Notes: The family of this 77-nucleotide RNA sequence from Geotrypetes seraphini is "Small nucleolar RNA SNORD83".

[Rfam]
RNA sequence: GCCAAAUGAUGUGAAGCAGAUUUCAUUAGCACUCUGUGUAAAGAUGACAUAACAUCUAUCACCCAUUGCUGAUGGCU
Numbered sequence: 001g002c003c004a005a006a007u008g009a010u011g012u013g014a015a016g017c018a019g020a021u022u023u024c025a026u027u028a029g030c031a032c033u034c035u036g037u038g039u040a041a042a043g044a045u046g047a048c049a050u051a052a053c054a055u056c057u058a059u060c061a062c063c064c065a066u067u068g069c070u071g072a073u074g075g076c077u
Base pairs, nucleotide, nucleotide: 001076002075003074004073029039030038031037032036
Rfam 15.1 lists 1,393 matches to the family in 644 species.